Record summary:
This 272-nucleotide RNA sequence from Callithrix jacchus belongs to the Rfam family "Mason-Pfizer monkey virus packaging signal". Taxonomically the source falls in Callithrix (Eukaryota, Deuterostomia, Boreoeutheria, Simiiformes). Rfam's curators write: This family represents a group of sequences that are related to the Mason-Pfizer monkey virus (MPMV) packaging signal. Its family is annotated with viral genome packaging in the Gene Ontology. The family's RNA type in Rfam is cis-regulatory element.
Nucleotides: 272
Base pairs, nucleotide, nucleotide: 006032007031008030012027013026014025038046039045084130085129086128088126089125094121095120096119100116101115102114103113104112135155137153142149143148160199162197163195164194165193206248207247208246209245210244212242213241216234217233219231220230258271259270260269262267
Number, partner (000 for none) and nucleotide at each position: 001000u002000g003000g004000c005000g006032c007031c008030c009000a010000a011000c012027g013026u014025g015000a016000g017000a018000g019000c020000u021000c022000g023000a024000g025014u026013a027012c028000g029000a030008g031007g032006g033000a034000c035000a036000c037000a038046g039045u040000g041000a042000g043000g044000g045039a046038u047000g048000c049000c050000g051000u052000c053000a054000a055000g056000g057000u058000c059000a060000g061000c062000c063000g064000g065000c066000g067000c068000a069000g070000a071000a072000g073000g074000a075000u076000u077000a078000a079000g080000a081000a082000a083000c084130c085129c086128g087000g088126a089125g090000g091000a092000a093000a094121g095120a096119g097000c098000g099000u100116c101115g102114u103113g104112g105000g106000a107000a108000c109000c110000u111000g112104c113103c114102a115101c116100g117000g118000a119096c120095u121094c122000g123000c124000g125089c126088u127000c128086c129085g130084g131000u132000a133000a134000g135155c136000g137153g138000a139000c140000g141000g142149c143148g144000a145000a146000u147000a148143u149142g150000g151000g152000a153137c154000a155135g156000g157000a158000a159000a160199u161000c162197a163195g164194c165193c166000a167000g168000c169000a170000u171000g172000a173000g174000u175000u176000g177000u178000u179000c180000a181000u182000a183000g184000a185000g186000a187000g188000u189000u190000u191000a192000a193165g194164g195163c196000u197162u198000u199160a200000a201000a202000g203000g204000c205000g206248c207247g208246g209245g210244g211000a212242g213241u214000a215000a216234a217233g218000g219231u220230g221000a222000a223000a224000a225000u226000a227000a228000a229000a230220c231219g232000a233217u234216u235000g236000u237000g238000u239000a240000a241213a242212u243000a244210u245209u246208u247207u248206g249000a250000c251000u252000a253000c254000a255000u256000u257000c258271a259270g260269g261000c262267u263000g264000u265000c266000u267262g268000c269260c270259c271258u272000u